A member of the RNA family "Streptococcus sRNA SpF59 (ldcC RNA)" from Eshraghiella crossota, 52 nucleotides long. The source organism's lineage runs through Bacteria, Bacillati, Clostridia, Eshraghiella and Eshraghiella crossota.
RNA sequence: AGACCGCUUCAUUUAUGAAGAGAGCCUUACGGACAGGCGGGUCGGCUGCCGG
Numbered sequence: 001a002g003a004c005c006g007c008u009u010c011a012u013u014u015a016u017g018a019a020g021a022g023a024g025c026c027u028u029a030c031g032g033a034c035a036g037g038c039g040g041g042u043c044g045g046c047u048g049c050c051g052g
Base pairs, nucleotide, nucleotide: 002043003042004041005040007020008019009018010017011016